[Rfam]
RNA sequence: UUGCGCCUGCGGUGGACGCAGCGGUGCACUUAUGAUCAUGUCUUGCAGGCGGCUGUGCUCCGUACCGUCUCGUGAACCGAAACUUUUCGGAUUCAAAAUCCUCCC
Dot-bracket structure: ....(((((((..[[.[[..[[[[.[[[.........[.[[[.)))))))]]]].]]].]]]]..]].]]......(((((....)))))...............
Shown here is a 105-nucleotide sequence, a member of the family "RT-5 RNA". The family's consensus secondary structure is taken from published work. The family's RNA type in Rfam is small RNA.